Description:
The family of this 340-nucleotide RNA from Flavobacteriaceae bacterium LYZ1037 is "Bacterial RNase P class A". It is annotated as a ribozyme. The organism belongs to Flavobacteriaceae, within Bacteria.
[Rfam]
RNA sequence: CAAGUAGAUCGCCUUAUCGAACCAAACUUGUUUUGGUUAGGAAAGUCCGAACACCAAAGUGCAACAUAGUGGUUAAUGGCCACCAGUCGUGAGGCUAGGAAAAGUGCAACAGAAAGAAUGUACAGGUAAUGCUGUAGUGAAACCAGGUAAACUCUAUGUGGUGCAAUGUCAUGUAAACCAACGUUUGAGAGCUGCACGCUUGAUGUUGGAGGGUAGGCAGCUAAAGUGUAUUGGUAACAAUGCACUCAGAUAAAUGAUAAGGAUGUUUUGAACUAUUGUUGGGGAGAUCCUGAAAUGAGUUCAGGACAUACAGAAUUCGGCUUAUAGAUUUACUUAAAUA
Number, nucleotide and partner (000 for none) at each position: 001c000002a335003a334004g333005u332006a331007g330008a329009u328010c327011g325012c262013c261014u260015u259016a258017u257018c256019g000020a038021a037022c036023c035024a034025a033026a032027c000028u000029u000030g000031u000032u026033u025034u024035g023036g022037u021038u020039a000040g000041g000042a000043a323044a322045g321046u000047c320048c319049g318050a317051a316052c163053a162054c161055c160056a000057a000058a000059g197060u196061g195062c194063a000064a159065c158066a157067u156068a155069g083070u082071g081072g080073u079074u000075a000076a000077u000078g000079g073080c072081c071082a070083c069084c098085a096086g095087u094088c093089g000090u000091g000092a000093g088094g087095c086096u085097a000098g084099g154100a153101a000102a000103a000104g152105u151106g148107c147108a000109a000110c000111a000112g000113a000114a000115a000116g000117a000118a000119u000120g000121u136122a135123c134124a133125g132126g000127u000128a000129a000130u000131g000132c125133u124134g123135u122136a121137g000138u000139g000140a000141a000142a000143c000144c000145a000146g000147g107148u106149a000150a000151a105152c104153u100154c099155u068156a067157u066158g065159u064160g055161g054162u053163g052164c000165a000166a000167u219168g218169u217170c216171a000172u000173g000174u000175a000176a000177a000178c209179c208180a207181a206182c205183g000184u000185u000186u000187g000188a000189g201190a200191g199192c198193u000194g062195c061196a060197c059198g192199c191200u190201u189202g000203a000204u000205g182206u181207u180208g179209g178210a000211g000212g000213g000214u000215a000216g170217g169218c168219a167220g000221c000222u000223a000224a000225a000226g245227u244228g243229u242230a241231u240232u239233g238234g000235u000236a000237a000238c233239a232240a231241u230242g229243c228244a227245c226246u000247c000248a000249g000250a000251u000252a000253a000254a000255u000256g018257a017258u016259a015260a014261g013262g012263a000264u000265g000266u000267u000268u000269u000270g000271a000272a000273c000274u000275a000276u000277u000278g000279u000280u000281g000282g000283g000284g000285a000286g000287a000288u000289c000290c000291u000292g000293a000294a000295a000296u000297g000298a000299g000300u000301u000302c000303a000304g000305g000306a000307c000308a000309u000310a000311c000312a000313g000314a000315a000316u051317u050318c049319g048320g047321c045322u044323u043324a000325u011326a000327g010328a009329u008330u007331u006332a005333c004334u003335u002336a000337a000338a000339u000340a000